[Rfam]
RNA sequence: AUGCCUUAAACUGAUGAGUAAGGAAAAUAACGACGCGGGGUGACGCCCGUGUCCUCGUAAACAUAACGAGAAGAAUUUUUGAAGGGGUAAAGGUCUGCUUACUGAGGUGACUCACCUACUUUGUGAGAUGCCUCGUAGGUCUAGGACCUUCCCU
Numbered sequence: 001a002u003g004c005c006u007u008a009a010a011c012u013g014a015u016g017a018g019u020a021a022g023g024a025a026a027a028u029a030a031c032g033a034c035g036c037g038g039g040g041u042g043a044c045g046c047c048c049g050u051g052u053c054c055u056c057g058u059a060a061a062c063a064u065a066a067c068g069a070g071a072a073g074a075a076u077u078u079u080u081g082a083a084g085g086g087g088u089a090a091a092g093g094u095c096u097g098c099u100u101a102c103u104g105a106g107g108u109g110a111c112u113c114a115c116c117u118a119c120u121u122u123g124u125g126a127g128a129u130g131c132c133u134c135g136u137a138g139g140u141c142u143a144g145g146a147c148c149u150u151c152c153c154u
Base pairs, nucleotide, nucleotide: 004023005022006021007020008019032053033052034051035050036049037048038047039046054070055069056068057067058066084154085153086152087151091149092148093147094146095145096144100138105133106132107131108130109129111127112126113125114124115123
Shown here is a 154-nucleotide RNA from Notothenia coriiceps, a member of the family "U12 minor spliceosomal RNA". The family's RNA type in Rfam is spliceosomal small nuclear RNA. A reference for the family is Tarn and Steitz (1997), "Pre-mRNA splicing: the discovery of a new spliceosome doubles the challenge", Trends Biochem Sci.